Shown here is an 86-nucleotide RNA sequence, a member of the family "GA-cis RNA". Pairs were carried over by alignment from the consensus structure, which is taken from published work. Rfam's curators put it in the seed alignment.

RNA sequence: UUGAGGAGGAACCAUAUGACGAAGUCAUAGUUAAAACUGGUUCCGACGACCUGCCGCCGAGCGUCAGCGAGGGGGCAAUACACUAU
Numbered sequence: 001u002u003g004a005g006g007a008g009g010a011a012c013c014a015u016a017u018g019a020c021g022a023a024g025u026c027a028u029a030g031u032u033a034a035a036a037c038u039g040g041u042u043c044c045g046a047c048g049a050c051c052u053g054c055c056g057c058c059g060a061g062c063g064u065c066a067g068c069g070a071g072g073g074g075g076c077a078a079u080a081c082a083c084u085a086u
Base pairs, nucleotide, nucleotide: 008044009043010042011041012040013039015029016028017027018026019025053076054075055074057072058071061068062067